[Rfam]
RNA sequence: ACAUUGCGAAUGCCGCGAAUUGAGCCGCGUAAAUUUGCCGUUCCCCCCUGACCACGGAUGUACUGGCAGGGCGUGGAACGGCCGGAAAAGGUCGGGGUUCAAGCCCGACCUUUUUGCGU
Numbered sequence: 001a002c003a004u005u006g007c008g009a010a011u012g013c014c015g016c017g018a019a020u021u022g023a024g025c026c027g028c029g030u031a032a033a034u035u036u037g038c039c040g041u042u043c044c045c046c047c048c049u050g051a052c053c054a055c056g057g058a059u060g061u062a063c064u065g066g067c068a069g070g071g072c073g074u075g076g077a078a079c080g081g082c083c084g085g086a087a088a089a090g091g092u093c094g095g096g097g098u099u100c101a102a103g104c105c106c107g108a109c110c111u112u113u114u115u116g117c118g119u
Stems, first nucleotide, its partner, number of pairs: 004032002012028002015025002037082007046071005052066003083118002086114010098102001
This 119-nucleotide RNA sequence from Mycoplana dimorpha belongs to the Rfam family "Alphaproteobacterial sRNA ar35". Lineage of the source: Bacteria > Pseudomonadota > Alphaproteobacteria > Rhizobiaceae > Mycoplana. It scores 50 bits against the family's covariance model. For this family Rfam cites "A survey of sRNA families in alpha-proteobacteria" (del Val et al., RNA Biol, 2012). The base pairs follow the family's consensus structure. By type it is a small RNA.